[Rfam]
RNA sequence: AUAUAUCUUUGGGGCAGGUGAGAUUCCUGAUCGGUGGUACAGUCCACGAGCGUAAGCAUGAACCGGUGUAAUUCCGGUACCGACGGUUAUAGUCCGGAUGGAAAAAGAUGGUG
Numbered sequence: 001a002u003a004u005a006u007c008u009u010u011g012g013g014g015c016a017g018g019u020g021a022g023a024u025u026c027c028u029g030a031u032c033g034g035u036g037g038u039a040c041a042g043u044c045c046a047c048g049a050g051c052g053u054a055a056g057c058a059u060g061a062a063c064c065g066g067u068g069u070a071a072u073u074c075c076g077g078u079a080c081c082g083a084c085g086g087u088u089a090u091a092g093u094c095c096g097g098a099u100g101g102a103a104a105a106a107g108a109u110g111g112u113g
Stems, first nucleotide, its partner, number of pairs: 004110007016028003030093002032082002034047004042080002062078005084096003
Shown here is a 113-nucleotide sequence from Eggerthia catenaformis, a member of the family "FMN riboswitch aptamer (RFN element)". The family's consensus secondary structure is taken from published work.